[Rfam]
RNA sequence: CGCUGAUGCGUUAAGGCUUACUUAGUACGCUGAAUGUAAACAGCUAAAGUGAAGCGGGAUACCAUAGAACAAACAGUGACAUUGUUUGUAUUGGGAUUUGUGCGAUUAUCAAAUAUAGACGAGGUGGCUCCUUGUUUCUAUUUGACAAUCUUCAAGCUGAAAUCGGGGUUAGCCAAUCCUGAUGAAGCUUGAACAAAGCAUUUUGAACAAUUGCAGUAUCUUCCGAGUAAAAAAAUUGCAGACGAACCCUCUCGCAUGUCACGCGGGAGGCUUAGU
Numbered sequence: 001c002g003c004u005g006a007u008g009c010g011u012u013a014a015g016g017c018u019u020a021c022u023u024a025g026u027a028c029g030c031u032g033a034a035u036g037u038a039a040a041c042a043g044c045u046a047a048a049g050u051g052a053a054g055c056g057g058g059a060u061a062c063c064a065u066a067g068a069a070c071a072a073a074c075a076g077u078g079a080c081a082u083u084g085u086u087u088g089u090a091u092u093g094g095g096a097u098u099u100g101u102g103c104g105a106u107u108a109u110c111a112a113a114u115a116u117a118g119a120c121g122a123g124g125u126g127g128c129u130c131c132u133u134g135u136u137u138c139u140a141u142u143u144g145a146c147a148a149u150c151u152u153c154a155a156g157c158u159g160a161a162a163u164c165g166g167g168g169u170u171a172g173c174c175a176a177u178c179c180u181g182a183u184g185a186a187g188c189u190u191g192a193a194c195a196a197a198g199c200a201u202u203u204u205g206a207a208c209a210a211u212u213g214c215a216g217u218a219u220c221u222u223c224c225g226a227g228u229a230a231a232a233a234a235a236u237u238g239c240a241g242a243c244g245a246a247c248c249c250u251c252u253c254g255c256a257u258g259u260c261a262c263g264c265g266g267g268a269g270g271c272u273u274a275g276u
Stems, first nucleotide, its partner, number of pairs: 001056004029044004035240005057221006069089007076262007090211004245273002248270007
Rfam assigns this 276-nucleotide RNA sequence to the family "FuFi-1 RNA".